RNA sequence: GUUGGGUAUGAUGGCACAUGUCUGUAAUCUUUGCAUCUGGGAGACUGAGGCUGCUGGACUACUUGAGUCCAGUGCCAUGACACACUAUGGUGAACGGGAGUCCUGGUGAUGGUCAGCAUUGACAUCGUGCUUCUUGGGGAGCCUUGGCGCCCCAGAUCGUCUAGGGAGGGGUUAACCAACCCAUGCUGGUGACGGAGCAGGUGAAAGCCCCUGUGCUGAGCAGUCUGUGGGUUGCCCUGUGAGAAGGGGCUGCAGUGCUGCCAAGGUGAAAGGUGGCUUAAC
Numbered sequence: 001g002u003u004g005g006g007u008a009u010g011a012u013g014g015c016a017c018a019u020g021u022c023u024g025u026a027a028u029c030u031u032u033g034c035a036u037c038u039g040g041g042a043g044a045c046u047g048a049g050g051c052u053g054c055u056g057g058a059c060u061a062c063u064u065g066a067g068u069c070c071a072g073u074g075c076c077a078u079g080a081c082a083c084a085c086u087a088u089g090g091u092g093a094a095c096g097g098g099a100g101u102c103c104u105g106g107u108g109a110u111g112g113u114c115a116g117c118a119u120u121g122a123c124a125u126c127g128u129g130c131u132u133c134u135u136g137g138g139g140a141g142c143c144u145u146g147g148c149g150c151c152c153c154a155g156a157u158c159g160u161c162u163a164g165g166g167a168g169g170g171g172u173u174a175a176c177c178a179a180c181c182c183a184u185g186c187u188g189g190u191g192a193c194g195g196a197g198c199a200g201g202u203g204a205a206a207g208c209c210c211c212u213g214u215g216c217u218g219a220g221c222a223g224u225c226u227g228u229g230g231g232u233u234g235c236c237c238u239g240u241g242a243g244a245a246g247g248g249g250c251u252g253c254a255g256u257g258c259u260g261c262c263a264a265g266g267u268g269a270a271a272g273g274u275g276g277c278u279u280a281a282c
Base pairs, nucleotide, nucleotide: 001045002044003043004023005022006021007020008019009018010017028042029041030040048279049278050277051276052275053274054273055272060268061267062266063265064264065261070260071259072258073257074256075255078252079251081249085246086245088243094240095239096238097237098236100235101234102230103229105228108225109224110222111221113219114218115217116216117215118214119213120159121158122157125154127152129150130149132147133146136143137142160166161165167212168211169210170209171208172207173206179202180201181200186195187194188193
RNA: Metazoan signal recognition particle RNA
Organism: Scleropages formosus